Shown here is a 97-nucleotide RNA from Candidatus Neomicrothrix parvicella, a member of the family "Glycine riboswitch aptamer". It scores 51 bits against the family's covariance model.

[Rfam]
RNA sequence: CCAUCUCGGACGGGAGAGCGUCGGGGGCAACCGCCACCCGGCCGCCGGAGGAGCAACCACCCCGGAAUCUCUCAGGCACCGGUACCGCCCGGGUCAG
Numbered sequence: 001c002c003a004u005c006u007c008g009g010a011c012g013g014g015a016g017a018g019c020g021u022c023g024g025g026g027g028c029a030a031c032c033g034c035c036a037c038c039c040g041g042c043c044g045c046c047g048g049a050g051g052a053g054c055a056a057c058c059a060c061c062c063c064g065g066a067a068u069c070u071c072u073c074a075g076g077c078a079c080c081g082g083u084a085c086c087g088c089c090c091g092g093g094u095c096a097g
Base pairs, nucleotide, nucleotide: 006092007091008090009089011087012086013085020042021041022040023039024038025037044077045076046075047073048072051071052070053069057065058064